[Rfam]
RNA sequence: UCUUGAUAAAGGCAAAUCCAUUGAAAAAUGGAGACGCAAAGCUAUAGGGGCUAAAGUAUAAGAUACCACGCCAGCCAGCUACCGAU
Numbered sequence: 001u002c003u004u005g006a007u008a009a010a011g012g013c014a015a016a017u018c019c020a021u022u023g024a025a026a027a028a029u030g031g032a033g034a035c036g037c038a039a040a041g042c043u044a045u046a047g048g049g050g051c052u053a054a055a056g057u058a059u060a061a062g063a064u065a066c067c068a069c070g071c072c073a074g075c076c077a078g079c080u081a082c083c084g085a086u
Stems, first nucleotide, its partner, number of pairs: 012037002017032006040080004047076002049072003056066004
About this RNA:
This 86-nucleotide RNA sequence from Mesobacillus campisalis belongs to the Rfam family "c-di-GMP-I riboswitch aptamer". Rfam's curators write: GEMM was predicted in a large-scale screen for bacterial structured RNA regulatory elements. The base pairs follow the family's consensus structure, which is taken from published work. The match comes from Rfam's covariance-model search (83 bits).